[Rfam]
RNA: Small nucleolar RNA R16
Organism: Brachypodium distachyon
Nucleotides: 082
Stems, first nucleotide, its partner, number of pairs: 003080005
Number, partner (000 for none) and nucleotide at each position: 001000g002000g003080u004079g005078g006077c007076a008000a009000a010000u011000g012000a013000u014000g015000u016000g017000a018000a019000a020000g021000a022000u023000u024000a025000u026000a027000u028000g029000c030000u031000a032000g033000a034000a035000u036000c037000u038000g039000a040000a041000u042000c043000u044000u045000c046000a047000u048000g049000u050000g051000g052000a053000c054000a055000a056000a057000a058000a059000c060000u061000c062000c063000g064000c065000u066000u067000a068000u069000u070000a071000u072000c073000u074000g075000a076007u077006g078005c079004c080003a081000c082000a